PyrD leader: a 73-nucleotide sequence from Musicola paradisiaca.
The family's RNA type in Rfam is cis-regulatory leader.
RNA sequence: AUUCCCUUUCAUUCGAUGAUGCAGGAUAAUACCGCCCCGGUUUGCCACCGGGAAUUCAGGAGAAUUCAUGUAC
Numbered sequence: 001a002u003u004c005c006c007u008u009u010c011a012u013u014c015g016a017u018g019a020u021g022c023a024g025g026a027u028a029a030u031a032c033c034g035c036c037c038c039g040g041u042u043u044g045c046c047a048c049c050g051g052g053a054a055u056u057c058a059g060g061a062g063a064a065u066u067c068a069u070g071u072a073c
Base pairs, nucleotide, nucleotide: 036052037051038050039049040048041047
Taxonomically the source falls in Musicola paradisiaca (Bacteria, Gammaproteobacteria, Enterobacterales, Pectobacteriaceae). Rfam links the family to the GO term regulation of gene expression. A reference for the family is Sorensen (1994), "Conformational heterogeneity in the Salmonella typhimurium pyrC and pyrD leader mRNAs produced in vivo", Nucleic Acids Res.